[Rfam]
RNA sequence: ACUAUGGAGAGUACAAGGAACUAUGAGUAGAUACAUUGUAUUGAAAAUAUACUCAUUGAAAUAGUAA
Numbered sequence: 001a002c003u004a005u006g007g008a009g010a011g012u013a014c015a016a017g018g019a020a021c022u023a024u025g026a027g028u029a030g031a032u033a034c035a036u037u038g039u040a041u042u043g044a045a046a047a048u049a050u051a052c053u054c055a056u057u058g059a060a061a062u063a064g065u066a067a
Stems, first nucleotide, its partner, number of pairs: 001065005009054005022049003030042003034038001